[Rfam]
RNA: c-di-AMP riboswitch aptamer (ydaO/yuaA leader)
RNA sequence: CGCCACGAGUUGUCUGAACAGAUGACAGGGACGGGGGAACCAAGUACGUGGGCACCGACGGUGCCCUUGGGGUGAAGCCGCACCAGCACGACGCGGCCGGGUCAUUCUCCGAUCCGAAUCCGACAGCUCACCUCGUAGGCGCCGGGAGAAAUGCU
Numbered sequence: 001c002g003c004c005a006c007g008a009g010u011u012g013u014c015u016g017a018a019c020a021g022a023u024g025a026c027a028g029g030g031a032c033g034g035g036g037g038a039a040c041c042a043a044g045u046a047c048g049u050g051g052g053c054a055c056c057g058a059c060g061g062u063g064c065c066c067u068u069g070g071g072g073u074g075a076a077g078c079c080g081c082a083c084c085a086g087c088a089c090g091a092c093g094c095g096g097c098c099g100g101g102u103c104a105u106u107c108u109c110c111g112a113u114c115c116g117a118a119u120c121c122g123a124c125a126g127c128u129c130a131c132c133u134c135g136u137a138g139g140c141g142c143c144g145g146g147a148g149a150a151a152u153g154c155u
Base pairs, nucleotide, nucleotide: 001141002140003139004138010028011027012026013025014024031136032135033134034133035132036131041069042068043067044066070121071120072119078096079095080094081093099115100114101113102112